[Rfam]
Notes: A member of the RNA family "Plant small nucleolar RNA U3" from Papaver nudicaule, 218 nucleotides long.
RNA sequence: ACGACCUUACUUGAACAGGAUUUGUUCUAUAGGCUCGUACCUCUGCAUCCCUGAGUUCUAAGGAGACAGGAACUAAAGUCUGGUUGAUGAGCUAUGACCGCACCACCAGAGCGUGAUUAAUGGUUGCCAGUUCAUGAUGUGUGCUGUGCUUCUGUAGAGGAUCGUUCUCAGCUUUGGCCUUGGCCUGCUGUGAUGGUCGUGCGGUUGUUUGACAGACU
Numbered sequence: 001a002c003g004a005c006c007u008u009a010c011u012u013g014a015a016c017a018g019g020a021u022u023u024g025u026u027c028u029a030u031a032g033g034c035u036c037g038u039a040c041c042u043c044u045g046c047a048u049c050c051c052u053g054a055g056u057u058c059u060a061a062g063g064a065g066a067c068a069g070g071a072a073c074u075a076a077a078g079u080c081u082g083g084u085u086g087a088u089g090a091g092c093u094a095u096g097a098c099c100g101c102a103c104c105a106c107c108a109g110a111g112c113g114u115g116a117u118u119a120a121u122g123g124u125u126g127c128c129a130g131u132u133c134a135u136g137a138u139g140u141g142u143g144c145u146g147u148g149c150u151u152c153u154g155u156a157g158a159g160g161a162u163c164g165u166u167c168u169c170a171g172c173u174u175u176g177g178c179c180u181u182g183g184c185c186u187g188c189u190g191u192g193a194u195g196g197u198c199g200u201g202c203g204g205u206u207g208u209u210u211g212a213c214a215g216a217c218u
Base pairs, nucleotide, nucleotide: 001038002037003035005033006032007031013027014026015025016024017023018022043069044068045067048064049063050062052060053059078217079216080215081214082213097205098204099203100202101201102200103199105197106196107195108194110166111165112164113163120155121154122153123152126149127148128146129145130144131143133141134140135139169190170189171188172187176184

About this RNA
Clan: U3 clan. Small nucleolar RNAs (snoRNAs) are involved in the processing and modification of rRNA in the nucleolus. There are two main classes of snoRNAs: the box C/D class, and the box H/ACA class. A reference for the family is Zwieb (1997), "The uRNA database", Nucleic Acids Res. The base pairs follow the family's consensus structure, which is taken from published work. It is annotated as a C/D-box small nucleolar RNA. The organism belongs to Papaver, within Eukaryota.